[Rfam]
Notes:
A member of the RNA family "Xanthomonadaceae sRNA sX13" from Pseudoxanthomonas composti, 114 nucleotides long. Pairs were carried over by alignment from the consensus structure, which was predicted with CMfinder. For this family Rfam cites "Genome-wide transcriptome analysis of the plant pathogen Xanthomonas identifies sRNAs with putative virulence functions" (Schmidtke et al., Nucleic Acids Res, 2011). It is annotated as a small RNA.
RNA sequence: AACGUCUGUCGCGGAGACACUCCCAUCCCCUGGAGUGAAUCCCCUGGAACGGGCCCCCUCCCCAGGGACCGUUCCCUAGCCCCGCAGGCCCCCCCUGGUCCGCGGGGCUUUUUC
Numbered sequence: 001a002a003c004g005u006c007u008g009u010c011g012c013g014g015a016g017a018c019a020c021u022c023c024c025a026u027c028c029c030c031u032g033g034a035g036u037g038a039a040u041c042c043c044c045u046g047g048a049a050c051g052g053g054c055c056c057c058c059u060c061c062c063c064a065g066g067g068a069c070c071g072u073u074c075c076c077u078a079g080c081c082c083c084g085c086a087g088g089c090c091c092c093c094c095c096u097g098g099u100c101c102g103c104g105g106g107g108c109u110u111u112u113u114c
Stems, first nucleotide, its partner, number of pairs: 004012001006011001013042003018037001020035004046075007054067003078109008087100004